[Rfam]
A member of the RNA family "Alphaproteobacteria transfer-messenger RNA" from Proteobacteria bacterium CAG:495, 458 nucleotides long.
Rfam's curators write: Bacterial tmRNA, also known as 10Sa RNA or SsrA, is named for its dual tRNA and mRNA-like properties.
Rfam links the family to the GO term RNA catabolic process.
Pairs were carried over by alignment from the consensus structure, which is taken from published work.

RNA sequence: UAUCUUGAAUUUUUAAUAUUCUUGCUUAUAAUAACAGAUUGUCAGAGCAAUCUGACUAUGACACUAGAGGCUCUGUGAAAUAGGUGUUUUGGACCUGGGGGCAGUACCCAGCACCUCCACCAUAAGUUAUUUGAGUUAUUGGUCGCGGUUGUUUAAUUUCUGCAUUUUGUGCCAAUGGUACAUUCUCUGCCGAAAUUGAGCCGGUUUUGGAAGCCAAUCUCAAAUGUCUUAAUUCCUCUUAUGGGGGUGAAACAGGAUUGACAAGGUACAGUAAAGACAGGUAUGUCGUGUUCGGUGAGAUACCACCGUUAUCGGUUCAAAUUUAAAUGAAUGCUAACGAUAAUAACGUAGCUCCUGUUGCAAUGGCUGCUUAGUUGUAGUCGCAACAAACUUAAAUCCUUACGGCUUUGGAUAGCUGUGAGUGGGGUCUGGGCCACCUAUCAACAGAACGGCCCGCU
Numbered sequence: 001u002a003u004c005u006u007g008a009a010u011u012u013u014u015a016a017u018a019u020u021c022u023u024g025c026u027u028a029u030a031a032u033a034a035c036a037g038a039u040u041g042u043c044a045g046a047g048c049a050a051u052c053u054g055a056c057u058a059u060g061a062c063a064c065u066a067g068a069g070g071c072u073c074u075g076u077g078a079a080a081u082a083g084g085u086g087u088u089u090u091g092g093a094c095c096u097g098g099g100g101g102c103a104g105u106a107c108c109c110a111g112c113a114c115c116u117c118c119a120c121c122a123u124a125a126g127u128u129a130u131u132u133g134a135g136u137u138a139u140u141g142g143u144c145g146c147g148g149u150u151g152u153u154u155a156a157u158u159u160c161u162g163c164a165u166u167u168u169g170u171g172c173c174a175a176u177g178g179u180a181c182a183u184u185c186u187c188u189g190c191c192g193a194a195a196u197u198g199a200g201c202c203g204g205u206u207u208u209g210g211a212a213g214c215c216a217a218u219c220u221c222a223a224a225u226g227u228c229u230u231a232a233u234u235c236c237u238c239u240u241a242u243g244g245g246g247g248u249g250a251a252a253c254a255g256g257a258u259u260g261a262c263a264a265g266g267u268a269c270a271g272u273a274a275a276g277a278c279a280g281g282u283a284u285g286u287c288g289u290g291u292u293c294g295g296u297g298a299g300a301u302a303c304c305a306c307c308g309u310u311a312u313c314g315g316u317u318c319a320a321a322u323u324u325a326a327a328u329g330a331a332u333g334c335u336a337a338c339g340a341u342a343a344u345a346a347c348g349u350a351g352c353u354c355c356u357g358u359u360g361c362a363a364u365g366g367c368u369g370c371u372u373a374g375u376u377g378u379a380g381u382c383g384c385a386a387c388a389a390a391c392u393u394a395a396a397u398c399c400u401u402a403c404g405g406c407u408u409u410g411g412a413u414a415g416c417u418g419u420g421a422g423u424g425g426g427g428u429c430u431g432g433g434c435c436a437c438c439u440a441u442c443a444a445c446a447g448a449a450c451g452g453c454c455c456g457c458u
Base pairs, nucleotide, nucleotide: 041056042055043054044053045052060292061291062290063289064288072283073280074279075278076277085268086267087266089264090263091262095111096110097109098108099107112249113248114247115246116245117244118243293308294307295306296305299318300317302316303315304314425439426438427437428436431455432453434451